[Rfam]
RNA sequence: UCAAAGGCUCUUUUCAGAGCCACCUACGUAUUCCUUUAAGAGAGCU
Numbered sequence: 001u002c003a004a005a006g007g008c009u010c011u012u013u014u015c016a017g018a019g020c021c022a023c024c025u026a027c028g029u030a031u032u033c034c035u036u037u038a039a040g041a042g043a044g045c046u
Stems, first nucleotide, its partner, number of pairs: 006021006
Rfam assigns this 46-nucleotide RNA sequence from Lonchura striata to the family "Histone 3' UTR stem-loop".
Lineage of the source: Eukaryota > Opisthokonta > Sauria > Theropoda > Lonchura.
The base pairs follow the family's consensus structure, which is taken from published work.
It scores 37 bits against the family's covariance model.